[Rfam]
RNA sequence: CAGCUUGAAAAAGCCAGCGCAUUAUCCCAUAUGCGCUGGUGCCGGGUUCGCCCGGCUAUGGUGAUAAAUCGUAUCGUGCAAUAGGCGCAGCGGACCCGGGGGCAGUACCCGGCGGCUCCACCACAUGUCCCGCACUGCCGGGGCGUCUGAUGGGGCCGAACUAGGAUCGACGUGUGUUGAAAAGCGAAUGCCUUCACCCGGCCUGAGUACGCCGUAAAAAGGUUCGAAACCUACAAGUGCCAACGAUAACGAGGCUCUUGCUCUUGCUGCGUAAUUGAUGGCCUCACGGCCGGACAUUACUCAAAAAGAACGCGGUUGAACCCACCGGGCAACAGAAGGGAAUUCA
Dot-bracket structure: ........................................(((((......)))))...(((((......(((((((........(((.(((...(((((.......)))))(((((((................................)))))))............)))))).......)))).)))..)))))((((.[[[.[..)))).......].]]]......................................................................................((((.[[[..[))))............]..]]].
A member of the RNA family "Alphaproteobacteria transfer-messenger RNA" from Sphingobium herbicidovorans, 346 nucleotides long. Lineage of the source: Bacteria > Sphingomonadales > Sphingobiaceae > Sphingobium > Sphingobium herbicidovorans. The family's consensus secondary structure is taken from published work. Its Rfam clan is "tRNA clan". Rfam describes the family as follows. Bacterial tmRNA, also known as 10Sa RNA or SsrA, is named for its dual tRNA and mRNA-like properties. Its role is to liberate the mRNA from a stalled ribosome. To accomplish this part of the tmRNA is used as a reading frame that ends in a translation stop signal. The broken mRNA is replaced in the ribosome by the tmRNA and translation of the tmRNA leads to addition of a proteolysis tag to the incomplete protein enabling recognition by a protease. Recently a number of permuted tmRNA genes have been found encoded in two parts. tmRNAs have been identified in eubacteria and some chloroplasts but are absent from archaeal and eukaryote nuclear genomes. It is annotated as a non-coding RNA gene. The literature on the family includes a 2002 paper in Nucleic Acids Res by Laslett et al., "BRUCE: a program for the detection of transfer-messenger RNA genes in nucleotide sequences". A search with the family's covariance model found it, with a score of 225 bits.